A member of the RNA family "RNase MRP" from Anopheles sinensis, 277 nucleotides long. Its family is annotated with rRNA processing, ribonuclease MRP complex and ribonuclease MRP activity in the Gene Ontology. About the family: RNase MRP is an enzymatically active ribonucleoprotein with two distinct roles in eukaryotes.

RNA sequence: CGGUUGUUUCUAGCUCGACACUCGUGGUGCCAUGCGAGUUCUUGUAACUCAAAUCUUAGCUUCCGAUUCCGGGAGCUUACCAUGGGAAAAGUCCCCGGGCAUGCGACUGAAAAGUCAGGGUGAAACCUAAGUGCUCUUUGAUGGAAUCCUUUCGGUAGCGAGUUCACUCGCUGCAGACAGAGGACAUCUGUGCCACAUUACGAAAGUUAUGUUGAGAAUUACUGGUUCCCUUGUGGAUCCCAGCAAUUUACACAAUGGGGCUUACUUAGAAACGACU
Numbered sequence: 001c002g003g004u005u006g007u008u009u010c011u012a013g014c015u016c017g018a019c020a021c022u023c024g025u026g027g028u029g030c031c032a033u034g035c036g037a038g039u040u041c042u043u044g045u046a047a048c049u050c051a052a053a054u055c056u057u058a059g060c061u062u063c064c065g066a067u068u069c070c071g072g073g074a075g076c077u078u079a080c081c082a083u084g085g086g087a088a089a090a091g092u093c094c095c096c097g098g099g100c101a102u103g104c105g106a107c108u109g110a111a112a113a114g115u116c117a118g119g120g121u122g123a124a125a126c127c128u129a130a131g132u133g134c135u136c137u138u139u140g141a142u143g144g145a146a147u148c149c150u151u152u153c154g155g156u157a158g159c160g161a162g163u164u165c166a167c168u169c170g171c172u173g174c175a176g177a178c179a180g181a182g183g184a185c186a187u188c189u190g191u192g193c194c195a196c197a198u199u200a201c202g203a204a205a206g207u208u209a210u211g212u213u214g215a216g217a218a219u220u221a222c223u224g225g226u227u228c229c230c231u232u233g234u235g236g237a238u239c240c241c242a243g244c245a246a247u248u249u250a251c252a253c254a255a256u257g258g259g260g261c262u263u264a265c266u267u268a269g270a271a272a273c274g275a276c277u
Stems, first nucleotide, its partner, number of pairs: 002277010014216006022085007036078009089263003093260004105116004117139004122134001141187003148183005218247003222243004